RNA sequence: GAGAGCGCAUGUGGCCCGGUGGCUGUCGCGGUCUUCAAAACCGUUGGGCGGAGUGACGAACUACGCCGGUGGGUUCGACUCCCACGCGCUCUC
Numbered sequence: 001g002a003g004a005g006c007g008c009a010u011g012u013g014g015c016c017c018g019g020u021g022g023c024u025g026u027c028g029c030g031g032u033c034u035u036c037a038a039a040a041c042c043g044u045u046g047g048g049c050g051g052a053g054u055g056a057c058g059a060a061c062u063a064c065g066c067c068g069g070u071g072g073g074u075u076c077g078a079c080u081c082c083c084a085c086g087c088g089c090u091c092u093c
Stems, first nucleotide, its partner, number of pairs: 001093008011026006027047001028044005049068003053064001070084004

The record is a 93-nucleotide RNA from Chloroflexus aurantiacus, which matches "Selenocysteine transfer RNA" in Rfam. Rfam's curators put it in the seed alignment. The organism belongs to Chloroflexus aurantiacus, within Bacteria. A reference for the family is Mizutani and Goto (2000), "Eukaryotic selenocysteine tRNA has the 9/4 secondary structure", FEBS Lett.